[Rfam]
RNA: Guanidine-II riboswitch aptamer (mini-ykkC)
RNA sequence: CCGGCGGGACGACCCGCCAGCGGAGUGGCCCCGGCGGGACGACCCGC
Numbered sequence: 001c002c003g004g005c006g007g008g009a010c011g012a013c014c015c016g017c018c019a020g021c022g023g024a025g026u027g028g029c030c031c032c033g034g035c036g037g038g039a040c041g042a043c044c045c046g047c
Stems, first nucleotide, its partner, number of pairs: 001020001003018006034047005